A member of the RNA family "Flavo-1 RNA" from Flavobacteria bacterium BAL38, 98 nucleotides long.
RNA sequence: UAAUAGCCCCGAUGGAAGUGGAAAUCUUUUUUUUCCUUGCUUCGACUUCGCUCAACUUGACAAGGUAAAAAAAAUUGUAACGGACAGCGGGACUGAGA
Numbered sequence: 001u002a003a004u005a006g007c008c009c010c011g012a013u014g015g016a017a018g019u020g021g022a023a024a025u026c027u028u029u030u031u032u033u034u035c036c037u038u039g040c041u042u043c044g045a046c047u048u049c050g051c052u053c054a055a056c057u058u059g060a061c062a063a064g065g066u067a068a069a070a071a072a073a074a075u076u077g078u079a080a081c082g083g084a085c086a087g088c089g090g091g092a093c094u095g096a097g098a
Stems, first nucleotide, its partner, number of pairs: 009090003013086002018081002023076003029071005035065005